[Rfam]
RNA: Actino-pnp RNA
RNA sequence: GUCGGUCCUCGGUGGUGGCCCCCGGGACGAGCCCGGCCCCCCCCGCGGGGCCGGCGACCCGAGGGCUUCGAUCGAAGGCCGGC
Numbered sequence: 001g002u003c004g005g006u007c008c009u010c011g012g013u014g015g016u017g018g019c020c021c022c023c024g025g026g027a028c029g030a031g032c033c034c035g036g037c038c039c040c041c042c043c044c045g046c047g048g049g050g051c052c053g054g055c056g057a058c059c060c061g062a063g064g065g066c067u068u069c070g071a072u073c074g075a076a077g078g079c080c081g082g083c
Stems, first nucleotide, its partner, number of pairs: 001083007009075005017067005023061004028056002